[Rfam]
c-di-GMP-I riboswitch aptamer: a 90-nucleotide sequence from Anaerovirgula multivorans.
GEMM was predicted in a large-scale screen for bacterial structured RNA regulatory elements.
It scores 85 bits against the family's covariance model.
NCBI's taxonomy places the organism under Bacteria, Bacillati, Peptostreptococcales, Natronincolaceae, Anaerovirgula.
RNA sequence: UAUUGAUAAUAGCAAACUCAUUGAAAAAUGAGGACGCAAAGCUAUGGAUCUAAGGGAAAGUAUUGUUCCUAUGAUUGCCAGGUUGCCAAA
Dot-bracket structure: ...........((...((((((....))))))...))..((((.((((((....((((.......))))...)))..)))))))......
Numbered sequence: 001u002a003u004u005g006a007u008a009a010u011a012g013c014a015a016a017c018u019c020a021u022u023g024a025a026a027a028a029u030g031a032g033g034a035c036g037c038a039a040a041g042c043u044a045u046g047g048a049u050c051u052a053a054g055g056g057a058a059a060g061u062a063u064u065g066u067u068c069c070u071a072u073g074a075u076u077g078c079c080a081g082g083u084u085g086c087c088a089a090a
Stems, first nucleotide, its partner, number of pairs: 012037002017032006040084004045080003048075003055069004